Source information:
The family of this 81-nucleotide RNA sequence from Panthera tigris is "Small nucleolar RNA SNORD115". By type it is a C/D-box small nucleolar RNA. The source organism's lineage runs through Eukaryota, Bilateria, Eutheria, Boreoeutheria and Panthera tigris. On this family, see Cavaille et al., Proc Natl Acad Sci U S A 2000: "Identification of brain-specific and imprinted small nucleolar RNA genes exhibiting an unusual genomic organization". Pairs were carried over by alignment from the consensus structure, which was predicted with PFOLD. The match comes from Rfam's covariance-model search (62 bits).
RNA sequence: AGGUAAAUGAUGAGAACUCAUAUUGUCUUGAAGAGAGCUAAUGACCUAAUAGUCACGUUCAGGAGAAUUACACUGGGGCCC
Dot-bracket structure: .(((.(.((.............................................................)).)...))).